[Rfam]
RNA sequence: UACAAUAGUUAGGAAACUCAAGGGUGGUCAGUGUUACCCCGAUACGAAAGGGGGUGAUGCUUAUGAUGACAGUAUUUCAAACGUUAAUGCUCAUGAUUGCAUUCUCAAGUUUGGUAUUGUCAAUCAUUUCUUUUAGAGACAAAAAAUAACCCACCCUUGAGCCUAGCAGCGUAAUAGGGUGAGUUAUUAUUUACCAACAUGCUGAUCCCCUUGGUGGGAACCUAGCUAUUGUAUGACUGUUUGGUGUUCUAGCACCAAGC
Numbered sequence: 001u002a003c004a005a006u007a008g009u010u011a012g013g014a015a016a017c018u019c020a021a022g023g024g025u026g027g028u029c030a031g032u033g034u035u036a037c038c039c040c041g042a043u044a045c046g047a048a049a050g051g052g053g054g055u056g057a058u059g060c061u062u063a064u065g066a067u068g069a070c071a072g073u074a075u076u077u078c079a080a081a082c083g084u085u086a087a088u089g090c091u092c093a094u095g096a097u098u099g100c101a102u103u104c105u106c107a108a109g110u111u112u113g114g115u116a117u118u119g120u121c122a123a124u125c126a127u128u129u130c131u132u133u134u135a136g137a138g139a140c141a142a143a144a145a146a147u148a149a150c151c152c153a154c155c156c157u158u159g160a161g162c163c164u165a166g167c168a169g170c171g172u173a174a175u176a177g178g179g180u181g182a183g184u185u186a187u188u189a190u191u192u193a194c195c196a197a198c199a200u201g202c203u204g205a206u207c208c209c210c211u212u213g214g215u216g217g218g219a220a221c222c223u224a225g226c227u228a229u230u231g232u233a234u235g236a237c238u239g240u241u242u243g244g245u246g247u248u249c250u251a252g253c254a255c256c257a258a259g260c
Stems, first nucleotide, its partner, number of pairs: 001233005007227003011223001015200001017161008026151003034056001037054004068121007082095002105113001171190003206219004239260009